[Rfam]
Description:
This 71-nucleotide sequence from Drosophila virilis belongs to the Rfam family "mir-310 microRNA precursor family". The base pairs follow the family's consensus structure, which was predicted with RNAalifold. Gene Ontology terms of the family: cellular response to nitric oxide, head involution and segmentation. Its Rfam clan is "mir-92 microRNA precursor clan".
RNA sequence: UUUUCGGCUGUGGUCAGUGUCAAUUCUUUUUUUUUAUUUUUACAAGUAUUGCACUUUUCACGGCCGGAAAA
Numbered sequence: 001u002u003u004u005c006g007g008c009u010g011u012g013g014u015c016a017g018u019g020u021c022a023a024u025u026c027u028u029u030u031u032u033u034u035u036a037u038u039u040u041u042a043c044a045a046g047u048a049u050u051g052c053a054c055u056u057u058u059c060a061c062g063g064c065c066g067g068a069a070a071a
Stems, first nucleotide, its partner, number of pairs: 001070003006065002009062002012059002016055002019052001021051004026046002